[Rfam]
RNA sequence: CGUCGGUGCUGAAUUAGUGAUUGGCACCGAUUUUUUAUCUCAACUAGGAGUAAGAUAUGUCACUAACUGCGGCAAAAAAAGCUGAAAUCGUUAAGGAUUUUGGUCAAGGCGAA
Numbered sequence: 001c002g003u004c005g006g007u008g009c010u011g012a013a014u015u016a017g018u019g020a021u022u023g024g025c026a027c028c029g030a031u032u033u034u035u036u037a038u039c040u041c042a043a044c045u046a047g048g049a050g051u052a053a054g055a056u057a058u059g060u061c062a063c064u065a066a067c068u069g070c071g072g073c074a075a076a077a078a079a080a081g082c083u084g085a086a087a088u089c090g091u092u093a094a095g096g097a098u099u100u101u102g103g104u105c106a107a108g109g110c111g112a113a
Stems, first nucleotide, its partner, number of pairs: 007026006045066001047064002050061001
Ribosomal S15 leader: a 113-nucleotide sequence from Pseudidiomarina piscicola.
Rfam links the family to the GO term regulation of translation, ncRNA-mediated.
The match comes from Rfam's covariance-model search (83 bits).
The E. coli Ribosomal S15 gene 5' UTR can form two alternative structures.
The family is grouped with related families in Rfam's "Ribosomal Protein S15 Leader clan".
By type it is a cis-regulatory leader.
Taxonomically the source falls in Pseudidiomarina (Bacteria, Pseudomonadota, Gammaproteobacteria, Alteromonadales).